[Rfam]
A member of the RNA family "c-di-GMP-I riboswitch aptamer" from Brevibacillus brevis, 89 nucleotides long. The organism belongs to Brevibacillus brevis, within Bacteria. It scores 63 bits against the family's covariance model. Its family is annotated with cyclic-di-GMP binding in the Gene Ontology.
RNA sequence: AUAUCGAAACGGCAUACCCGGGGAAAUCCGGCGACGCAAAGCUACAGGGGCUACCUCCGCAACAGCGGACACGCUUGCCAGCUACCGAA
Number, nucleotide and partner (000 for none) at each position: 001a000002u000003a000004u000005c000006g000007a000008a000009a000010c000011g000012g037013c036014a000015u000016a000017c000018c031019c030020g029021g028022g027023g000024a000025a000026a000027u022028c021029c020030g019031g018032c000033g000034a000035c000036g013037c012038a000039a000040a083041g082042c081043u080044a000045c000046a000047g079048g078049g075050g074051c073052u000053a000054c000055c000056u069057c068058c067059g066060c000061a000062a000063c000064a000065g000066c059067g058068g057069a056070c000071a000072c000073g051074c050075u049076u000077g000078c048079c047080a043081g042082c041083u040084a000085c000086c000087g000088a000089a000